[Rfam]
RNA sequence: AUGUUUUUCAUGGUAUUAGAUUUAAGGUUAGCAAGAGGUUGGUUGUCGUGAGACAAUCAACCUUUACUUUUUA
Numbered sequence: 001a002u003g004u005u006u007u008u009c010a011u012g013g014u015a016u017u018a019g020a021u022u023u024a025a026g027g028u029u030a031g032c033a034a035g036a037g038g039u040u041g042g043u044u045g046u047c048g049u050g051a052g053a054c055a056a057u058c059a060a061c062c063u064u065u066a067c068u069u070u071u072u073a
Base pairs, nucleotide, nucleotide: 041058042057043056044055045054046053047052